[Rfam]
RNA sequence: GUCCAAAGUUCAAUGAUGUUGUCUUUCCUAAGCACAUAGGUGAUUGCUCCAUGUGGAAAAUAACUUGCUGAGUGAUUCUGGAU
Numbered sequence: 001g002u003c004c005a006a007a008g009u010u011c012a013a014u015g016a017u018g019u020u021g022u023c024u025u026u027c028c029u030a031a032g033c034a035c036a037u038a039g040g041u042g043a044u045u046g047c048u049c050c051a052u053g054u055g056g057a058a059a060a061u062a063a064c065u066u067g068c069u070g071a072g073u074g075a076u077u078c079u080g081g082a083u
Stems, first nucleotide, its partner, number of pairs: 001083005008076003011072001
Dot-bracket structure: (((((..((((............................................................).)))..)))))
The record is an 83-nucleotide RNA sequence from Circaetus pectoralis, which matches "Small nucleolar RNA SNORD121A" in Rfam. NCBI's taxonomy places the organism under Eukaryota, Gnathostomata, Dinosauria, Telluraves, Circaetus. Its family is annotated with RNA processing and nucleolus in the Gene Ontology. A search with the family's covariance model found it, with a score of 63 bits. For this family Rfam cites "snoSeeker: an advanced computational package for screening of guide and orphan snoRNA genes in the human genome" (Yang et al., Nucleic Acids Res, 2006). By type it is a C/D-box small nucleolar RNA.